[Rfam]
RNA sequence: CAACAAUAUCCUGAUGCCGUCUGAGUGUGCGGGAAAGCUCCAGCAUCAGUGAUUUUGUUG
Number, nucleotide and partner (000 for none) at each position: 001c000002a059003a058004c057005a056006a055007u000008a053009u052010c051011c049012u048013g047014a046015u045016g044017c043018c000019g041020u000021c000022u000023g000024a000025g000026u000027g000028u000029g000030c000031g000032g000033g000034a000035a000036a000037g000038c000039u000040c000041c019042a000043g017044c016045a015046u014047c013048a012049g011050u000051g010052a009053u008054u000055u006056u005057g004058u003059u002060g000

The record is a 60-nucleotide RNA from Xenopus tropicalis, which matches "mir-338 microRNA precursor family" in Rfam. Taxonomically the source falls in Silurana (Eukaryota, Gnathostomata, Dipnotetrapodomorpha, Pipoidea).